[Rfam]
RNA sequence: GGAGUGAACUCAGAUGUGGAGCACUACCUUUGUGAGCAGUGUGACCCAAGGCCUGUGGACAGGGUAAGCUGAACCUCUGAUAAAACUCU
Numbered sequence: 001g002g003a004g005u006g007a008a009c010u011c012a013g014a015u016g017u018g019g020a021g022c023a024c025u026a027c028c029u030u031u032g033u034g035a036g037c038a039g040u041g042u043g044a045c046c047c048a049a050g051g052c053c054u055g056u057g058g059a060c061a062g063g064g065u066a067a068g069c070u071g072a073a074c075c076u077c078u079g080a081u082a083a084a085a086c087u088c089u
Stems, first nucleotide, its partner, number of pairs: 001089005010080005016074002020070003025066006032060002036056004041052002
A member of the RNA family "mir-555 microRNA precursor family" from Pan troglodytes, 89 nucleotides long. NCBI's taxonomy places the organism under Eukaryota, Sarcopterygii, Boreoeutheria, Euarchontoglires, Pan. Gene Ontology terms of the family: miRNA-mediated post-transcriptional gene silencing and RISC complex.